This 73-nucleotide sequence from Micromonospora sp. Llam0 belongs to the Rfam family "6C RNA".
Rfam classes the family as a cis-regulatory element.
The base pairs follow the family's consensus structure, which is taken from published work.
RNA sequence: GCGGGUUCGGCUCGACCCCCCCGGAGCCGGACCCCAGGCGACCCCCGUCUCCCCCCGGCGGGGGUCGUCGCUA
Numbered sequence: 001g002c003g004g005g006u007u008c009g010g011c012u013c014g015a016c017c018c019c020c021c022c023g024g025a026g027c028c029g030g031a032c033c034c035c036a037g038g039c040g041a042c043c044c045c046c047g048u049c050u051c052c053c054c055c056c057g058g059c060g061g062g063g064g065u066c067g068u069c070g071c072u073a
Stems, first nucleotide, its partner, number of pairs: 003034011037069013